Shown here is an 80-nucleotide RNA from Alligator mississippiensis, a member of the family "Mammalian CPEB3 ribozyme". The base pairs follow the family's consensus structure, which is taken from published work. A search with the family's covariance model found it, with a score of 38 bits. Rfam describes the family as follows. The mammalian CPEB3 ribozyme is a self cleaving RNA located in the second intron of the CPEB3 gene which belongs to a family of genes regulating messenger RNA polyadenylation.
[Rfam]
RNA sequence: AAAGGUCAUAAGACCGAGGCCACAGUAGAAGCACUUAUGGUGUAACCUUGUCAGAUUCCAAUGAACCUGCAAAUUCUGUU
Dot-bracket structure: ............[....[[....((((((((((.......)))..]]]...(((.(((....))).)))....)))))))